[Rfam]
RNA sequence: GAUGUAUGUACUUGUAAGUCACUCUGGAUAAGAGCGUCUGCUAAAUGACUUAAA
Numbered sequence: 001g002a003u004g005u006a007u008g009u010a011c012u013u014g015u016a017a018g019u020c021a022c023u024c025u026g027g028a029u030a031a032g033a034g035c036g037u038c039u040g041c042u043a044a045a046u047g048a049c050u051u052a053a054a
Stems, first nucleotide, its partner, number of pairs: 013043001014041003020036001022034004
RNA: UnaL2 LINE 3' element